[Rfam]
Rfam assigns this 66-nucleotide RNA from Staphylococcus carnosus to the family "Ribosomal protein L13 leader".
Lineage of the source: Bacteria > Bacillati > Bacillota > Caryophanales > Staphylococcus.
The family's RNA type in Rfam is cis-regulatory leader.
It is one of the family's seed sequences.
About the family: This family is a putative r-protein leader autoregulatory structure found in B. subtilis and other low-GC Gram-positive bacteria. It is located in the 5' untranslated regions of mRNAs encoding the L13-S9 (rplM-rpsI) ribosomal protein operon.

RNA sequence: GGUAUUGUUUUAUAUCACCACCACGAUAAGCCCCGGAAACUUAUUGUGUUACUAGAUAUAGAAGCA
Numbered sequence: 001g002g003u004a005u006u007g008u009u010u011u012a013u014a015u016c017a018c019c020a021c022c023a024c025g026a027u028a029a030g031c032c033c034c035g036g037a038a039a040c041u042u043a044u045u046g047u048g049u050u051a052c053u054a055g056a057u058a059u060a061g062a063a064g065c066a
Base pairs, nucleotide, nucleotide: 009062010061011060012059013058014057015056022048023047024046025045026044027043028042029041030040